[Rfam]
RNA sequence: ACAAUCUUUGGACCGUUGGUCUACCGAGCAAAUAUCGCCCGCUCGGUGGAAUAUCUUCCCUCCGUCGU
Dot-bracket structure: ...((....(((..((...((((((((((...........))))))))))..))..)))....))...
RNA: mir-2774 microRNA precursor family